[Rfam]
Description:
Saccharopolyspora sRNA 350: a 507-nucleotide RNA sequence from Longispora fulva. A search with the family's covariance model found it, with a score of 204 bits.

RNA sequence: UUGACGGUGUACUCCCAGAUGCCCUGGUCCUCGACGAGCGACUCGUCGCCGAAGUAGUCGCCGUCCGCCUGCAUGCCGAGGACGACCUGGCUGCCGUACUCCCCGGCGCCGAUCCGGUUGACCUUCCCGUGCGCGAUGAGGAACACCUGGUCUGCGACGUGGCCGAACUCGACGAUGACGUCGCCGGGCUCGUACUCCUGCUGGGUGAACCUGCCGGCGAGCGCGCCGAGCACGUCGGGGUCCUCGAAGCCGCGCAGCAGGGCCAGCUCGCCGAGCUCCUGCGGGACGACCGUGACGGUCGAGCCGGUGCUGACGAAGGUGACCCGACCGUCGCCGACGGCGUAGGUCAGGCGGCGGUUGACCCGGUAGGCCCCGCCCGCGACCUGCACCCAGGGCAGGACGCGCAGCAGCCACCGCGAGGUGAUCUCCUGCAUCUGCGGCACGGACUUGGUGGUGGUCGCCAGGUUGCGCGCGGCGGCCGUCGCCAGACUCUGCUGGCGCUGCUCG
Numbered sequence: 001u002u003g004a005c006g007g008u009g010u011a012c013u014c015c016c017a018g019a020u021g022c023c024c025u026g027g028u029c030c031u032c033g034a035c036g037a038g039c040g041a042c043u044c045g046u047c048g049c050c051g052a053a054g055u056a057g058u059c060g061c062c063g064u065c066c067g068c069c070u071g072c073a074u075g076c077c078g079a080g081g082a083c084g085a086c087c088u089g090g091c092u093g094c095c096g097u098a099c100u101c102c103c104c105g106g107c108g109c110c111g112a113u114c115c116g117g118u119u120g121a122c123c124u125u126c127c128c129g130u131g132c133g134c135g136a137u138g139a140g141g142a143a144c145a146c147c148u149g150g151u152c153u154g155c156g157a158c159g160u161g162g163c164c165g166a167a168c169u170c171g172a173c174g175a176u177g178a179c180g181u182c183g184c185c186g187g188g189c190u191c192g193u194a195c196u197c198c199u200g201c202u203g204g205g206u207g208a209a210c211c212u213g214c215c216g217g218c219g220a221g222c223g224c225g226c227c228g229a230g231c232a233c234g235u236c237g238g239g240g241u242c243c244u245c246g247a248a249g250c251c252g253c254g255c256a257g258c259a260g261g262g263c264c265a266g267c268u269c270g271c272c273g274a275g276c277u278c279c280u281g282c283g284g285g286a287c288g289a290c291c292g293u294g295a296c297g298g299u300c301g302a303g304c305c306g307g308u309g310c311u312g313a314c315g316a317a318g319g320u321g322a323c324c325c326g327a328c329c330g331u332c333g334c335c336g337a338c339g340g341c342g343u344a345g346g347u348c349a350g351g352c353g354g355c356g357g358u359u360g361a362c363c364c365g366g367u368a369g370g371c372c373c374c375g376c377c378c379g380c381g382a383c384c385u386g387c388a389c390c391c392a393g394g395g396c397a398g399g400a401c402g403c404g405c406a407g408c409a410g411c412c413a414c415c416g417c418g419a420g421g422u423g424a425u426c427u428c429c430u431g432c433a434u435c436u437g438c439g440g441c442a443c444g445g446a447c448u449u450g451g452u453g454g455u456g457g458u459c460g461c462c463a464g465g466u467u468g469c470g471c472g473c474g475g476c477g478g479c480c481g482u483c484g485c486c487a488g489a490c491u492c493u494g495c496u497g498g499c500g501c502u503g504c505u506c507g
Stems, first nucleotide, its partner, number of pairs: 006390006015381001018328001021325001025322001027320003031316002037311004042306001045305001047303001049301001051299001054233002058229003062225003065111001067109002075103001078101003082097003086093001117222003122217002126213001129210002131206002134203002138199001140197001143196001150191001154189002159184002234296004240290003244286002251281002254278001256277003260271001262269001329342004353377005360372001362370002391431005397425001400422002403418003407415001437476002440473001443470002446467001447465006477506002480503002484499005
Its family is annotated with regulation of secondary metabolite biosynthetic process in the Gene Ontology.